[Rfam]
RNA sequence: GCUCGACUGAUCCUGAGUGGUCUUGGGUGCAGGCUUCAGACCUGUAGCGGCUUAGCGGCCGAGCUGUUCGAUUCAGCCUGUCGAGC
Numbered sequence: 001g002c003u004c005g006a007c008u009g010a011u012c013c014u015g016a017g018u019g020g021u022c023u024u025g026g027g028u029g030c031a032g033g034c035u036u037c038a039g040a041c042c043u044g045u046a047g048c049g050g051c052u053u054a055g056c057g058g059c060c061g062a063g064c065u066g067u068u069c070g071a072u073u074c075a076g077c078c079u080g081u082c083g084a085g086c
Base pairs, nucleotide, nucleotide: 001086002085003084004083005082006081007080009078012027013026014025015024016023017022028046029045030044031043032042033041048061049060050059051058052057063077064076065075066074
Selenocysteine transfer RNA: an 86-nucleotide RNA from Chara braunii. The base pairs follow the family's consensus structure, which is taken from published work.